RNA: 6S / SsrS RNA
RNA sequence: AGAUGCCUGAAAUGUACGACAACUCUUGCUAUUUAGAACCUACAUUUACUUUAAACGGGAUUCCUAUAUGAUUUUUCUGGAUGUCAGGCCGCCACAGUCAGCGGAAGACAGAAGGGAAACUGCGGUCGCCCACCUAGCAUUGGCUAGGAGUCUAAAUUGCAGGAACCGGCAUUUUGGGUAACUU
Numbered sequence: 001a002g003a004u005g006c007c008u009g010a011a012a013u014g015u016a017c018g019a020c021a022a023c024u025c026u027u028g029c030u031a032u033u034u035a036g037a038a039c040c041u042a043c044a045u046u047u048a049c050u051u052u053a054a055a056c057g058g059g060a061u062u063c064c065u066a067u068a069u070g071a072u073u074u075u076u077c078u079g080g081a082u083g084u085c086a087g088g089c090c091g092c093c094a095c096a097g098u099c100a101g102c103g104g105a106a107g108a109c110a111g112a113a114g115g116g117a118a119a120c121u122g123c124g125g126u127c128g129c130c131c132a133c134c135u136a137g138c139a140u141u142g143g144c145u146a147g148g149a150g151u152c153u154a155a156a157u158u159g160c161a162g163g164a165a166c167c168g169g170c171a172u173u174u175u176g177g178g179u180a181a182c183u184u
Stems, first nucleotide, its partner, number of pairs: 002182001004180012017168002031157007039148002057131003063125002068121001073119006084108002089104004